[Rfam]
RNA sequence: CCCAGUUCACCGGGGGGCCGCUUCGCGCGGCUGAGAUUGGGCCUUAGCCCUGACCCGUCGAACCUGAUCCGGGUCAUGCCGGCGAAGGGAGGGAACGCGGACCGGGC
Numbered sequence: 001c002c003c004a005g006u007u008c009a010c011c012g013g014g015g016g017g018c019c020g021c022u023u024c025g026c027g028c029g030g031c032u033g034a035g036a037u038u039g040g041g042c043c044u045u046a047g048c049c050c051u052g053a054c055c056c057g058u059c060g061a062a063c064c065u066g067a068u069c070c071g072g073g074u075c076a077u078g079c080c081g082g083c084g085a086a087g088g089g090a091g092g093g094a095a096c097g098c099g100g101a102c103c104g105g106g107c
Stems, first nucleotide, its partner, number of pairs: 006095003010091001011057004016051001017031005039050004063088003069082004
RNA: TPP riboswitch aptamer (THI element)